[Rfam]
RNA: RNase MRP
RNA sequence: GGGGUAGUCAGUCAGUUGAUUCUCAGCGUCCGUGCGAAGAGGCUGCAAGGUCUCUUUGGUCAACAGGCUGGGGGGAAAGUCCCCGUGCACUGGGGCAGAGAGUGCCGCUGCGGCGGCAGGGACCCCUCGACCACUGGGGAACUCUGUCGUAAGACCGAGUGCCCCUGAGACCCACGCGCUUUCGUUCGCGAAGGUGUGUGGAGAGGAGGGGAUCUCCUUGGUGGCGAGGGCAAUGGCACGGCACCUCCUUGGGGGGUGUCUUUCUGCUGCUUGAGUGAAUUCAGCUGGUGCGAUGUCCUUCCCCGGGCACACGCACUUACUCGAUGGGGCUUAUGCCUGAACUACCC
Numbered sequence: 001g002g003g004g005u006a007g008u009c010a011g012u013c014a015g016u017u018g019a020u021u022c023u024c025a026g027c028g029u030c031c032g033u034g035c036g037a038a039g040a041g042g043c044u045g046c047a048a049g050g051u052c053u054c055u056u057u058g059g060u061c062a063a064c065a066g067g068c069u070g071g072g073g074g075g076a077a078a079g080u081c082c083c084c085g086u087g088c089a090c091u092g093g094g095g096c097a098g099a100g101a102g103u104g105c106c107g108c109u110g111c112g113g114c115g116g117c118a119g120g121g122a123c124c125c126c127u128c129g130a131c132c133a134c135u136g137g138g139g140a141a142c143u144c145u146g147u148c149g150u151a152a153g154a155c156c157g158a159g160u161g162c163c164c165c166u167g168a169g170a171c172c173c174a175c176g177c178g179c180u181u182u183c184g185u186u187c188g189c190g191a192a193g194g195u196g197u198g199u200g201g202a203g204a205g206g207a208g209g210g211g212a213u214c215u216c217c218u219u220g221g222u223g224g225c226g227a228g229g230g231c232a233a234u235g236g237c238a239c240g241g242c243a244c245c246u247c248c249u250u251g252g253g254g255g256g257u258g259u260c261u262u263u264c265u266g267c268u269g270c271u272u273g274a275g276u277g278a279a280u281u282c283a284g285c286u287g288g289u290g291c292g293a294u295g296u297c298c299u300u301c302c303c304c305g306g307g308c309a310c311a312c313g314c315a316c317u318u319a320c321u322c323g324a325u326g327g328g329g330c331u332u333a334u335g336c337c338u339g340a341a342c343u344a345c346c347c
Stems, first nucleotide, its partner, number of pairs: 002347007009339003014286006022073001023071005037056007077332003081329004094106004108119004121260003127256002131252002136249004147240001288316005